[Rfam]
RNA sequence: GUCUCUGAGGAUGAUCAACAGAACUUUCGUUCUUCUGAGAAGUUCCAUGUGGAAAAUUUGUGGAGACCUGAACUGAAGGGAC
Number, nucleotide and partner (000 for none) at each position: 001g000002u000003c080004u079005c078006u077007g000008a000009g000010g000011a000012u000013g000014a000015u000016c000017a000018a000019c000020a000021g000022a000023a000024c000025u000026u000027u000028c000029g000030u000031u000032c000033u000034u000035c000036u000037g000038a000039g000040a000041a000042g000043u000044u000045c000046c000047a000048u000049g000050u000051g000052g000053a000054a000055a000056a000057u000058u000059u000060g000061u000062g000063g000064a000065g000066a000067c000068c000069u000070g000071a000072a000073c000074u000075g000076a000077a006078g005079g004080g003081a000082c000